[Rfam]
RNA sequence: CGUCCCCGCGUUCCACGACGCAUAAGGCUUUAAAGAACUUGGGGAAAUCACCCUCCCCACCCAAACCCGACCCCGGUCCCGUCGCCGUCACUCACGCGGGUGACAUGGGACAACUGAGCUGGAUUUCAUACGGGUUGGCUGGCAUAUGCUCGCCGCGACAACUCCAGACAUGCGACGGCCCCCGACGAGAUUCACAGUCUCAACCGGGGGCCUGACCACCGAGGAAGUAAGAGGCUUCCCG
Number, nucleotide and partner (000 for none) at each position: 001c000002g000003u000004c000005c000006c000007c000008g219009c000010g217011u000012u000013c000014c000015a000016c000017g083018a082019c081020g080021c000022a000023u000024a000025a000026g000027g000028c000029u000030u000031u000032a000033a000034a000035g000036a000037a000038c000039u000040u000041g000042g000043g000044g000045a000046a000047a000048u000049c000050a000051c000052c000053c000054u000055c000056c000057c000058c000059a000060c000061c000062c000063a000064a000065a000066c000067c000068c000069g000070a000071c000072c000073c000074c000075g000076g000077u000078c000079c000080c020081g019082u018083c017084g000085c000086c000087g000088u103089c102090a101091c100092u099093c098094a000095c000096g000097c000098g093099g092100g091101u090102g089103a088104c000105a000106u000107g000108g000109g000110a000111c000112a000113a000114c000115u000116g000117a000118g154119c000120u152121g151122g150123a000124u000125u000126u000127c000128a000129u000130a000131c000132g000133g000134g000135u000136u000137g000138g000139c000140u000141g000142g000143c000144a000145u000146a000147u000148g000149c000150u122151c121152g120153c000154c118155g000156c000157g000158a000159c000160a000161a000162c000163u000164c000165c000166a000167g000168a000169c000170a000171u000172g000173c000174g000175a000176c000177g212178g211179c210180c209181c208182c000183c206184g205185a000186c000187g201188a200189g199190a198191u000192u000193c000194a000195c000196a000197g000198u190199c189200u188201c187202a000203a000204c000205c184206g183207g000208g181209g180210g179211c178212c177213u000214g000215a000216c000217c010218a000219c008220c000221g000222a000223g239224g238225a237226a236227g235228u000229a000230a000231g000232a000233g000234g000235c227236u226237u225238c224239c223240c000241g000

Shown here is a 241-nucleotide RNA from Streptomyces sp. ADI95-17, a member of the family "Streptomyces sRNA 4677". Located in the intergenic region between anti-sigma factor SCO4677 gene and a putative regulatory protein gene SCO4676. scr4677 expression requires the SCO4677 activity and scr4677 sRNA itself seem to affect the levels of the SCO4676-associated transcripts. The family's RNA type in Rfam is small RNA.